[Rfam]
This 72-nucleotide sequence from Actinopolymorpha pittospori belongs to the Rfam family "Actinobacteria sRNA Ms_AS-8". NCBI's taxonomy places the organism under Bacteria, Bacillati, Actinomycetes, Actinopolymorphaceae, Actinopolymorpha. A reference for the family is Li et al. (2013), "Identification of small RNAs in Mycobacterium smegmatis using heterologous Hfq", RNA.
RNA sequence: CCUGAUCAGACAGCUAUGGAUUCCAGAUCUUCCUCGGGAAGGUGCGUCCCUUCACGUCAUCAGGCCGAGGGC
Dot-bracket structure: ...((((.((..........))...))))........((((..(....)))))...................
Numbered sequence: 001c002c003u004g005a006u007c008a009g010a011c012a013g014c015u016a017u018g019g020a021u022u023c024c025a026g027a028u029c030u031u032c033c034u035c036g037g038g039a040a041g042g043u044g045c046g047u048c049c050c051u052u053c054a055c056g057u058c059a060u061c062a063g064g065c066c067g068a069g070g071g072c
Stems, first nucleotide, its partner, number of pairs: 004029004009022002038053004044049001